[Rfam]
RNA sequence: UAAGUUGGCUGAAUUAGUGAUCGGCCAACUUUCACAUCCUUAUUAGGAGAACACUAUGUCACUAACUAAAAAAGAAACUGCGGACAUCGUAGCCGAUUACGGCGUAAAAGAA
Numbered sequence: 001u002a003a004g005u006u007g008g009c010u011g012a013a014u015u016a017g018u019g020a021u022c023g024g025c026c027a028a029c030u031u032u033c034a035c036a037u038c039c040u041u042a043u044u045a046g047g048a049g050a051a052c053a054c055u056a057u058g059u060c061a062c063u064a065a066c067u068a069a070a071a072a073a074g075a076a077a078c079u080g081c082g083g084a085c086a087u088c089g090u091a092g093c094c095g096a097u098u099a100c101g102g103c104g105u106a107a108a109a110g111a112a
Stems, first nucleotide, its partner, number of pairs: 007026006044065001046063002049060001
Background:
Rfam assigns this 112-nucleotide RNA sequence from Salinimonas marina to the family "Ribosomal S15 leader". The organism belongs to Salinimonas, within Bacteria. It is annotated as a cis-regulatory leader. About the family: The E. coli Ribosomal S15 gene 5' UTR can form two alternative structures. The literature on the family includes a 1996 paper in Biochimie by Benard et al., "Pseudoknot and translational control in the expression of the S15 ribosomal protein".